[Rfam]
RNA sequence: GGUUGCAUCAUCGACAUUCUGGACAGGGGUUCGAUUCCCCUCACCUCCAUUACUUGGGGGUGCCAUGGUUUCGACAGGGUACACGGAAUGUGACUGAAACCUGCUUGGAUAAGCAAACCAUAGAUGCAAA
Numbered sequence: 001g002g003u004u005g006c007a008u009c010a011u012c013g014a015c016a017u018u019c020u021g022g023a024c025a026g027g028g029g030u031u032c033g034a035u036u037c038c039c040c041u042c043a044c045c046u047c048c049a050u051u052a053c054u055u056g057g058g059g060g061u062g063c064c065a066u067g068g069u070u071u072c073g074a075c076a077g078g079g080u081a082c083a084c085g086g087a088a089u090g091u092g093a094c095u096g097a098a099a100c101c102u103g104c105u106u107g108g109a110u111a112a113g114c115a116a117a118c119c120a121u122a123g124a125u126g127c128a129a130a
Stems, first nucleotide, its partner, number of pairs: 001095005016080002019077003025041005042062007
RNA: permuted transfer-messenger RNA
Organism: Cryomorphaceae bacterium